RNA sequence: AACUGAAUAACAAUGCAAACAUAAACACACACAACACACAUGGAAAAACUACUUUCACUCCGAUUAUCUCUGUUAUCGCAUUCCGUGCGAGGCUAAAGGUUAUCUGAAAGAAGUUAGUUCACUAUCCAAACUUUGCCCGCAUAUCCUCCGAUUAUGCGGGUCUUUUUUUAUCUAGA
Number, nucleotide and partner (000 for none) at each position: 001a000002a000003c000004u000005g000006a000007a000008u000009a000010a000011c000012a000013a022014u021015g020016c000017a000018a000019a000020c015021a014022u013023a000024a000025a000026c000027a000028c000029a000030c000031a000032c000033a000034a000035c000036a000037c000038a000039c000040a000041u128042g127043g126044a125045a000046a000047a119048a118049c117050u116051a000052c000053u113054u000055u111056c110057a000058c000059u107060c106061c000062g104063a103064u102065u000066a100067u099068c098069u097070c000071u095072g094073u000074u092075a000076u090077c089078g088079c087080a086081u085082u000083c000084c000085g081086u080087g079088c078089g077090a076091g000092g074093c000094u072095a071096a000097a069098g068099g067100u066101u000102a064103u063104c062105u000106g060107a059108a000109a000110g056111a055112a000113g053114u000115u000116a050117g049118u048119u047120c000121a000122c000123u000124a000125u044126c043127c042128a041129a000130a000131c000132u000133u000134u000135g161136c160137c159138c158139g157140c156141a155142u154143a153144u000145c000146c000147u000148c000149c000150g000151a000152u000153u143154a142155u141156g140157c139158g138159g137160g136161u135162c000163u000164u000165u000166u000167u000168u000169u000170a000171u000172c000173u000174a000175g000176a000
A member of the RNA family "Actinobacillus sRNA 14" from Pseudohaemophilus paraphrohaemolyticus, 176 nucleotides long. Lineage of the source: Bacteria > Pseudomonadati > Pseudomonadota > Gammaproteobacteria > Pseudohaemophilus. On this family, see Rossi et al., RNA 2016: "A computational strategy for the search of regulatory small RNAs in Actinobacillus pleuropneumoniae". Arrc stands for Actinobacillus pleuropneumoniae Regulatory RNA Candidate. The match comes from Rfam's covariance-model search (132 bits). The family's RNA type in Rfam is small RNA.